Shown here is a 93-nucleotide sequence from Kibdelosporangium aridum, a member of the family "Glycine riboswitch aptamer". Lineage of the source: Bacteria > Actinomycetota > Pseudonocardiales > Pseudonocardiaceae > Kibdelosporangium. Its family is annotated with glycine biosynthetic process in the Gene Ontology. The pairing is the family consensus, mapped onto this sequence. This family represents the bacterial glycine riboswitch.
RNA sequence: GCCACUCUGGAAAGCAGGCUGAAACACGCCUCGCCAACGGUGAAAGCCGCACAAGCGGUGAAGCUCUCAGGCAAAAAGGACAGAGGGGGAGUU
Numbered sequence: 001g002c003c004a005c006u007c008u009g010g011a012a013a014g015c016a017g018g019c020u021g022a023a024a025c026a027c028g029c030c031u032c033g034c035c036a037a038c039g040g041u042g043a044a045a046g047c048c049g050c051a052c053a054a055g056c057g058g059u060g061a062a063g064c065u066c067u068c069a070g071g072c073a074a075a076a077a078g079g080a081c082a083g084a085g086g087g088g089g090a091g092u093u
Stems, first nucleotide, its partner, number of pairs: 002088002005085005016031004033072003037067001040066001042064001046059002